This 104-nucleotide sequence from Tumebacillus algifaecis belongs to the Rfam family "S10-Clostridia ribosomal protein leader". Taxonomically the source falls in Tumebacillus (Bacteria, Bacillati, Bacillota, Alicyclobacillaceae). The family's RNA type in Rfam is cis-regulatory leader. The base pairs follow the family's consensus structure, which is taken from published work. On this family, see Eckert and Weinberg, BMC Microbiol 2020: "Discovery of 20 novel ribosomal leader candidates in bacteria and archaea".

RNA sequence: UGACUGCGAUGAUGCGGAAGGUUGCUGAGGUGCCGAAUGCUUUUGCCAUAUGCGGCACGGAUCAGGUAAAUUUUCGCGGAGUAUGUCCACUACAAAAUGGGCGA
Numbered sequence: 001u002g003a004c005u006g007c008g009a010u011g012a013u014g015c016g017g018a019a020g021g022u023u024g025c026u027g028a029g030g031u032g033c034c035g036a037a038u039g040c041u042u043u044u045g046c047c048a049u050a051u052g053c054g055g056c057a058c059g060g061a062u063c064a065g066g067u068a069a070a071u072u073u074u075c076g077c078g079g080a081g082u083a084u085g086u087c088c089a090c091u092a093c094a095a096a097a098u099g100g101g102c103g104a
Stems, first nucleotide, its partner, number of pairs: 014077003018074004025065004084103004090099001